FMN riboswitch aptamer (RFN element): a 163-nucleotide RNA sequence from Marinomonas spartinae. About the family: The RFN element is a highly conserved domain that is found frequently in the 5'-untranslated regions of prokaryotic mRNAs that encode for flavin mononucleotide (FMN) biosynthesis and transport proteins. Pairs were carried over by alignment from the consensus structure, which is taken from published work. Lineage of the source: Bacteria > Pseudomonadati > Gammaproteobacteria > Oceanospirillales > Marinomonas.
[Rfam]
RNA sequence: UUUCGUUCUCGGGGCGGGGUGCAAUUCCCCACCGGCGGUAUAGAGAUAAUCUAAGCCCGCGAGCGCUCAGUGUUAGCUAUGUUUAUCAUGCACCACGCUGAGGACAGCAGAUCUGGUGAGACUCCAGAGCCGACGGUAAUAGUCCGGAUGAUAGAGAGCGCGU
Numbered sequence: 001u002u003u004c005g006u007u008c009u010c011g012g013g014g015c016g017g018g019g020u021g022c023a024a025u026u027c028c029c030c031a032c033c034g035g036c037g038g039u040a041u042a043g044a045g046a047u048a049a050u051c052u053a054a055g056c057c058c059g060c061g062a063g064c065g066c067u068c069a070g071u072g073u074u075a076g077c078u079a080u081g082u083u084u085a086u087c088a089u090g091c092a093c094c095a096c097g098c099u100g101a102g103g104a105c106a107g108c109a110g111a112u113c114u115g116g117u118g119a120g121a122c123u124c125c126a127g128a129g130c131c132g133a134c135g136g137u138a139a140u141a142g143u144c145c146g147g148a149u150g151a152u153a154g155a156g157a158g159c160g161c162g163u
Stems, first nucleotide, its partner, number of pairs: 004160007017029003031143002033132002035060004055130002063108002112128005134146003